[Rfam]
RNA sequence: UACCUUUGCAACCGAAUUAGGAAAACCCUGAUUCAUACAUAAUAAUCAUUUAAUAUAAUAUUGGAAUG
Number, nucleotide and partner (000 for none) at each position: 001u000002a000003c000004c000005u000006u000007u000008g000009c000010a000011a000012c000013c000014g034015a033016a032017u031018u030019a029020g000021g000022a000023a000024a000025a000026c000027c000028c000029u019030g018031a017032u016033u015034c014035a000036u000037a000038c000039a000040u000041a000042a000043u000044a000045a000046u000047c000048a000049u000050u000051u000052a000053a000054u000055a000056u000057a000058a000059u000060a000061u000062u000063g000064g000065a000066a000067u000068g000
Notes
The record is a 68-nucleotide RNA sequence, which matches "S15-Flavobacteria ribosomal protein leader" in Rfam. On this family, see Eckert and Weinberg, BMC Microbiol 2020: "Discovery of 20 novel ribosomal leader candidates in bacteria and archaea". The family is grouped with related families in Rfam's "Ribosomal Protein S15 Leader clan". Rfam classes the family as a cis-regulatory leader.